[Rfam]
RNA sequence: AAUUCGGCUCAGAAGAAAAAAGAGAAGUAGAUUUAUUCUAUACUUAUUAAGUAUCAAUACGCAAUGGGG
Numbered sequence: 001a002a003u004u005c006g007g008c009u010c011a012g013a014a015g016a017a018a019a020a021a022g023a024g025a026a027g028u029a030g031a032u033u034u035a036u037u038c039u040a041u042a043c044u045u046a047u048u049a050a051g052u053a054u055c056a057a058u059a060c061g062c063a064a065u066g067g068g069g
Stems, first nucleotide, its partner, number of pairs: 003022002009016002043068003051060003
The family of this 69-nucleotide RNA from Gossypium australe is "Plastid-clpP 5UTR RNA". A reference for the family is Richter et al. (2023), "Retrograde signaling in plants: A critical review focusing on the GUN pathway and beyond", Plant Commun. It scores 63 bits against the family's covariance model. From the family's description: Plastid clpP is a non-coding RNA (ncRNA) recognised in plastids. It was found in the prime untranslated region (5UTR) of a protease complex subunit (clpP) in plastids, suggesting a posible cis-regulatory function.